[Rfam]
RNA sequence: UCAUCUGCUCACUUUAAGGUUGAGCAUCAAGCUUCGGCUUUCUCGUUUGGUGUUCUACCUUACAGUGAGAAAAUGA
Numbered sequence: 001u002c003a004u005c006u007g008c009u010c011a012c013u014u015u016a017a018g019g020u021u022g023a024g025c026a027u028c029a030a031g032c033u034u035c036g037g038c039u040u041u042c043u044c045g046u047u048u049g050g051u052g053u054u055c056u057a058c059c060u061u062a063c064a065g066u067g068a069g070a071a072a073a074u075g076a
Stems, first nucleotide, its partner, number of pairs: 006071001008069006015062003025052008
RNA: mir-971 microRNA precursor family
Organism: Pediculus humanus